[Rfam]
The record is a 540-nucleotide part of an RNA from Methanocella paludicola, which matches "Archaeal large subunit ribosomal RNA" in Rfam.

RNA sequence: GUUGCUGUGCCGUCCGGUGGAUGGCUUGGCUCGAGGACCGAUGAGGGACGUGCCAAGCUGCGAUAAGCCCGGGGGAGGCGCAUGGAGCCUUUGAGCCCGGGAUUUCCUAAUGAGACUUCUCGUAUGACCCGAUAAGGGUUGGGAACGCCCUGAGUUGAAACAUCUGCGUAGGGGCUGGAAGAGAAAUCAAUUUGAGAUGCUGUUAGUAACGGCGAGUGAACACAGCAGAGCCUAAACCGAAUCCUGCCCGAGAGGGCAAGGAGAUGUGGUGUUGUAAGACCGCCUUUUAGUCCGACACUCGUGAGAAUGACUCCCCUGGAACGGGGGGCCGUAGAGGGUGAUAGCCCCGUGUUCGUAGCGAGUAGGAUGUGGCGAGUUCUUGAGUACCGUGGGUCGGAUAUCUCGCGGGAAACUGGGGGACACAUUCCUCCAAGGCUAAAUAUAUCUCGAGACCGAUAGCGCAAUAGUAGAGUGAUCGAAAGCUGAAAAGCACCCUGAAUAGGGAGGUUAAAAGAGCCUGAAAUCGGACGGCGAUGGAGC
Numbered sequence: 001g002u003u004g005c006u007g008u009g010c011c012g013u014c015c016g017g018u019g020g021a022u023g024g025c026u027u028g029g030c031u032c033g034a035g036g037a038c039c040g041a042u043g044a045g046g047g048a049c050g051u052g053c054c055a056a057g058c059u060g061c062g063a064u065a066a067g068c069c070c071g072g073g074g075g076a077g078g079c080g081c082a083u084g085g086a087g088c089c090u091u092u093g094a095g096c097c098c099g100g101g102a103u104u105u106c107c108u109a110a111u112g113a114g115a116c117u118u119c120u121c122g123u124a125u126g127a128c129c130c131g132a133u134a135a136g137g138g139u140u141g142g143g144a145a146c147g148c149c150c151u152g153a154g155u156u157g158a159a160a161c162a163u164c165u166g167c168g169u170a171g172g173g174g175c176u177g178g179a180a181g182a183g184a185a186a187u188c189a190a191u192u193u194g195a196g197a198u199g200c201u202g203u204u205a206g207u208a209a210c211g212g213c214g215a216g217u218g219a220a221c222a223c224a225g226c227a228g229a230g231c232c233u234a235a236a237c238c239g240a241a242u243c244c245u246g247c248c249c250g251a252g253a254g255g256g257c258a259a260g261g262a263g264a265u266g267u268g269g270u271g272u273u274g275u276a277a278g279a280c281c282g283c284c285u286u287u288u289a290g291u292c293c294g295a296c297a298c299u300c301g302u303g304a305g306a307a308u309g310a311c312u313c314c315c316c317u318g319g320a321a322c323g324g325g326g327g328g329c330c331g332u333a334g335a336g337g338g339u340g341a342u343a344g345c346c347c348c349g350u351g352u353u354c355g356u357a358g359c360g361a362g363u364a365g366g367a368u369g370u371g372g373c374g375a376g377u378u379c380u381u382g383a384g385u386a387c388c389g390u391g392g393g394u395c396g397g398a399u400a401u402c403u404c405g406c407g408g409g410a411a412a413c414u415g416g417g418g419g420a421c422a423c424a425u426u427c428c429u430c431c432a433a434g435g436c437u438a439a440a441u442a443u444a445u446c447u448c449g450a451g452a453c454c455g456a457u458a459g460c461g462c463a464a465u466a467g468u469a470g471a472g473u474g475a476u477c478g479a480a481a482g483c484u485g486a487a488a489a490g491c492a493c494c495c496u497g498a499a500u501a502g503g504g505a506g507g508u509u510a511a512a513a514g515a516g517c518c519u520g521a522a523a524u525c526g527g528a529c530g531g532c533g534a535u536g537g538a539g540c
Stems, first nucleotide, its partner, number of pairs: 008533010023518001024483002028454002030451006037443001045108004049062003068101006077089003112121003127139004146177001147175005157164002187195002199226005209217002229437004237269003246257004281374003290368004305354003311327001313326004330334001336348003387408007415431005470477002
Dot-bracket structure: .......((((((((((.....(((..((((((((.(.......(((((((........))).....((((((...(((.......)))......))))))...))))...(((....))).....((((.....))))......((((((.....((....))......))))).).........((.....))...(((((.....((.....))....)))))..((((....(((......((((....)))).........)))...........(((......((((...........(((...(.((((......)))))..(...).(((.......)))...)))..........))))...)))............(((((((........)))))))......(((((.......)))))..)))).....)..)))))).))...............((....))....))..................................).....)))))))))).......
Record summary: The organism belongs to Methanocella paludicola, within Archaea.